[Rfam]
RNA sequence: GGGGGUCGGCCCCCCGAAGCCGCCAUACAGGUGGAGGCUUCAAACCACCGUAAGCUGCAUGGGUAAAGAGUCCUUGUAGUGAGCGUUACGGAAAAGGCAGGACUUGAUCCUGUCAGGU
Numbered sequence: 001g002g003g004g005g006u007c008g009g010c011c012c013c014c015c016g017a018a019g020c021c022g023c024c025a026u027a028c029a030g031g032u033g034g035a036g037g038c039u040u041c042a043a044a045c046c047a048c049c050g051u052a053a054g055c056u057g058c059a060u061g062g063g064u065a066a067a068g069a070g071u072c073c074u075u076g077u078a079g080u081g082a083g084c085g086u087u088a089c090g091g092a093a094a095a096g097g098c099a100g101g102a103c104u105u106g107a108u109c110c111u112g113u114c115a116g117g118u
Stems, first nucleotide, its partner, number of pairs: 001015005016041006023034004046117001048091006054080002057077003061073004096114006
A member of the RNA family "Group II catalytic intron D1-D4-2" from Thiothrix caldifontis, 118 nucleotides long.
The family has 144 seed sequences and 1,231 matches in Rfam 15.1.
On this family, see Lehmann and Schmidt, Crit Rev Biochem Mol Biol 2003: "Group II introns: structure and catalytic versatility of large natural ribozymes".
The base pairs follow the family's consensus structure.